[Rfam]
RNA sequence: UUAGCUGUCUGGGAUGUUAUCUGGCAUGGCAUCCCGUGCAGUACCCGCAGGUGUAAGAGGUGUCUUGCUGUGUGUCGGCAUUGGCGUGUCUUGGAAGAGACAUGUCGAGGCUGUUCAAAAGAGGGGGAUCGCACCAGGCUGGAAACAGAGCAGUGUAACCCUCUGCAUACGGCUGAAGAACACAAUCGCAUCUGUGCUGC
Numbered sequence: 001u002u003a004g005c006u007g008u009c010u011g012g013g014a015u016g017u018u019a020u021c022u023g024g025c026a027u028g029g030c031a032u033c034c035c036g037u038g039c040a041g042u043a044c045c046c047g048c049a050g051g052u053g054u055a056a057g058a059g060g061u062g063u064c065u066u067g068c069u070g071u072g073u074g075u076c077g078g079c080a081u082u083g084g085c086g087u088g089u090c091u092u093g094g095a096a097g098a099g100a101c102a103u104g105u106c107g108a109g110g111c112u113g114u115u116c117a118a119a120a121g122a123g124g125g126g127g128a129u130c131g132c133a134c135c136a137g138g139c140u141g142g143a144a145a146c147a148g149a150g151c152a153g154u155g156u157a158a159c160c161c162u163c164u165g166c167a168u169a170c171g172g173c174u175g176a177a178g179a180a181c182a183c184a185a186u187c188g189c190a191u192c193u194g195u196g197c198u199g200c
Base pairs, nucleotide, nucleotide: 038200039199040198047197048196056195058193059192060191061190062189063188064178065177067173068172069171070170071169072168073167074166075165076113077112078111079110081108082107083106084105085104086103087102088101089100090099092097115119120164121163122162123161124160125159131156132155133154134153139148140147141146
Dot-bracket structure: .....................................(((......((.......(.((((((((.(((((((((((((.((((((((((.(....).)))))))))).)))).(...)((((((.....((((....(((....)))....))))..)))))))))))))))...)).........)))))).))))))